[Rfam]
RNA sequence: GCCGGUCCUCGGUAGUGGUUCCCGGGAGAGACAAAACCCCGGGGACUUCGAUCGAAGACCGGC
Dot-bracket structure: (((((((.(((((...((((((((((...........))))))))))...))))).)))))))

A member of the RNA family "Actino-pnp RNA" from Labedaea rhizosphaerae, 63 nucleotides long. The base pairs follow the family's consensus structure, which is taken from published work. It scores 68 bits against the family's covariance model. Lineage of the source: Bacteria > Actinomycetota > Actinomycetes > Pseudonocardiales > Labedaea.